The record is a 176-nucleotide RNA from Firmicutes bacterium CAG:114, which matches "Lysine riboswitch aptamer" in Rfam.
[Rfam]
RNA sequence: UAGCAUGAUAGAGGUGCGGGCGCGAAGAGUAUGCCUCCUGGAAACCCAGGCUGGUGGGAGGGAGAAAGGCGUGUCUGCCGAGGUUUUUCAGAGGGGGCCUGUCCUUCUGGGAAGCCGGGCUGUGGGAUAAGAUCCCUCAGACUGUCGCCCCAAGGGGGCGGAGGGCUGUCGUGGUU
Number, nucleotide and partner (000 for none) at each position: 001u000002a000003g000004c000005a000006u171007g170008a169009u168010a167011g166012a000013g000014g000015u000016g078017c077018g076019g075020g074021c073022g072023c071024g070025a000026a000027g000028a000029g000030u000031a000032u063033g000034c061035c060036u059037c058038c057039u056040g000041g000042a000043a000044a000045c000046c000047c000048a000049g000050g000051c000052u000053g000054g000055u000056g039057g038058g037059a036060g035061g034062g000063a032064g000065a000066a000067a000068g000069g000070c024071g023072u022073g021074u020075c019076u018077g017078c016079c000080g000081a000082g116083g115084u114085u113086u112087u111088u110089c109090a108091g107092a106093g105094g104095g103096g000097g000098c000099c000100u000101g000102u000103c095104c094105u093106u092107c091108u090109g089110g088111g087112a086113a085114g084115c083116c082117g143118g142119g000120c140121u139122g138123u000124g136125g135126g134127a133128u000129a000130a000131g000132a000133u127134c126135c125136c124137u000138c122139a121140g120141a000142c118143u117144g000145u161146c160147g159148c158149c157150c156151c155152a000153a000154g000155g151156g150157g149158g148159c147160g146161g145162a000163g000164g000165g000166c011167u010168g009169u008170c007171g006172u000173g000174g000175u000176u000